[Rfam]
Nucleotides: 102
Stems, first nucleotide, its partner, number of pairs: 016092007025083010036072002039070001042067005
Number, partner (000 for none) and nucleotide at each position: 001000u002000c003000c004000u005000a006000u007000g008000g009000c010000u011000u012000g013000g014000a015000u016092u017091g018090g019089a020088c021087c022086u023000c024000c025083g026082c027081u028080g029079g030078u031077u032076u033075u034074c035000u036072c037071c038000g039070c040000g041000a042067u043066g044065a045064u046063a047000u048000u049000c050000c051000a052000a053000a054000u055000c056000a057000a058000g059000u060000u061000c062000u063046u064045a065044u066043c067042a068000c069000c070039g071037g072036g073000u074034g075033a076032a077031a078030a079029c080028u081027g082026g083025u084000a085000g086022a087021g088020g089019u090018c091017c092016g093000a094000u095000c096000u097000a098000g099000u100000c101000g102000a
A member of the RNA family "mir-36 microRNA precursor family" from Caenorhabditis nigoni, 102 nucleotides long. Its family is annotated with RISC complex and miRNA-mediated post-transcriptional gene silencing in the Gene Ontology. The organism belongs to Caenorhabditis, within Eukaryota.